RNA sequence: GAAGCGUGCCAGACCGCCGCUGGUGCAAGCCCGCAAGGGGCGAUGCCUUCGGGCACCGCGUCGAAAGACCGCACUGGAGGAACGUCCGGACUGCACAGGACAGCGCAGGAGCUAACGGCUCUCCACCGUGAGGUGAGGAUCAGAGCAACAGAGACGAGCCGAUUCAGUUCGGGUGAAACGGGCAAUCUCUGCGCGCAGCAACACCAAGUAGGCCAGUAUCGAGGUGGUUCCGCUGAGCUGGCGGGUAGGUGGCAUCGAGCCGUCUGGCGACAGACGGCCCAGAGUAAUGGCGGUCACGCCGGGCAUUUCGCAAGAGAUGUCCGGUGCACAGAAUCCGGCUUAUCGGCGCGCUUCACAC
Numbered sequence: 001g002a003a004g005c006g007u008g009c010c011a012g013a014c015c016g017c018c019g020c021u022g023g024u025g026c027a028a029g030c031c032c033g034c035a036a037g038g039g040g041c042g043a044u045g046c047c048u049u050c051g052g053g054c055a056c057c058g059c060g061u062c063g064a065a066a067g068a069c070c071g072c073a074c075u076g077g078a079g080g081a082a083c084g085u086c087c088g089g090a091c092u093g094c095a096c097a098g099g100a101c102a103g104c105g106c107a108g109g110a111g112c113u114a115a116c117g118g119c120u121c122u123c124c125a126c127c128g129u130g131a132g133g134u135g136a137g138g139a140u141c142a143g144a145g146c147a148a149c150a151g152a153g154a155c156g157a158g159c160c161g162a163u164u165c166a167g168u169u170c171g172g173g174u175g176a177a178a179c180g181g182g183c184a185a186u187c188u189c190u191g192c193g194c195g196c197a198g199c200a201a202c203a204c205c206a207a208g209u210a211g212g213c214c215a216g217u218a219u220c221g222a223g224g225u226g227g228u229u230c231c232g233c234u235g236a237g238c239u240g241g242c243g244g245g246u247a248g249g250u251g252g253c254a255u256c257g258a259g260c261c262g263u264c265u266g267g268c269g270a271c272a273g274a275c276g277g278c279c280c281a282g283a284g285u286a287a288u289g290g291c292g293g294u295c296a297c298g299c300c301g302g303g304c305a306u307u308u309c310g311c312a313a314g315a316g317a318u319g320u321c322c323g324g325u326g327c328a329c330a331g332a333a334u335c336c337g338g339c340u341u342a343u344c345g346g347c348g349c350g351c352u353u354c355a356c357a358c
Base pairs, nucleotide, nucleotide: 001354002353003352004351005350006349007348008347009346010345011343012295013294014293015292016291017290018289020077021076022075023074024073025072026071082341084339086338087337088336089335090334091198092197093196094195099229100228103194104193105192106191107190108122109121110120111119112118123137124135125134126133127132138189139188143187144186145183146182159172160171161170162169202251203250204249205248212242213241214240215239216238217237223234224233225232226231259278260277261276262275263274264273265272266271
Dot-bracket structure: ((((((((((((((((((.(((((((............................................)))))))....[.[.[[[[[((((....[[..((((((((((.....)))))(((((....)))).)((...((((............((((......)))).........))..)))))))))))))...((((......((((((.....((((.]].))))..)))))).....)))).......((((((((....))))))))..........)))))))......................................]]]]]].].).))))))))))....
Rfam assigns this 358-nucleotide RNA from Variovorax sp. PDC80 to the family "Bacterial RNase P class A". Its family is annotated with tRNA processing, ribonuclease P activity and dimeric ribonuclease P complex in the Gene Ontology. Rfam classes the family as a ribozyme. The organism belongs to Variovorax, within Bacteria.